About this RNA
Rfam assigns this 65-nucleotide sequence from Andalucia godoyi to the family "Selenocysteine insertion sequence 1". The family's consensus secondary structure is taken from published work. Rfam classes the family as a cis-regulatory element.
[Rfam]
RNA sequence: UUGCCAUUAUGAGGGUCUCUUUUGAAACAAUUUUUCAUUGGGAAAGGGACCUGAUGAACAGCGAA
Numbered sequence: 001u002u003g004c005c006a007u008u009a010u011g012a013g014g015g016u017c018u019c020u021u022u023u024g025a026a027a028c029a030a031u032u033u034u035u036c037a038u039u040g041g042g043a044a045a046g047g048g049a050c051c052u053g054a055u056g057a058a059c060a061g062c063g064a065a
Base pairs, nucleotide, nucleotide: 001065002064005061014051015050016049017048018047019046020045021044022043023042029039030038031037